This 67-nucleotide RNA sequence from Acidipila sp. EB88 belongs to the Rfam family "Fluoride riboswitch aptamer (crcB RNA motif)". It scores 53 bits against the family's covariance model. Lineage of the source: Bacteria > Terriglobia > Terriglobales > Acidobacteriaceae > Acidipila.
RNA sequence: UUCCCAUUAGGUGAUGGAUUCCACCUUAACCGCCCUCAAUCGACGGGCUAAUGAUUCCUACCGUCAG
Numbered sequence: 001u002u003c004c005c006a007u008u009a010g011g012u013g014a015u016g017g018a019u020u021c022c023a024c025c026u027u028a029a030c031c032g033c034c035c036u037c038a039a040u041c042g043a044c045g046g047g048c049u050a051a052u053g054a055u056u057c058c059u060a061c062c063g064u065c066a067g
Base pairs, nucleotide, nucleotide: 010025011024012023013022016058017057018056020054021053032048033047034046035045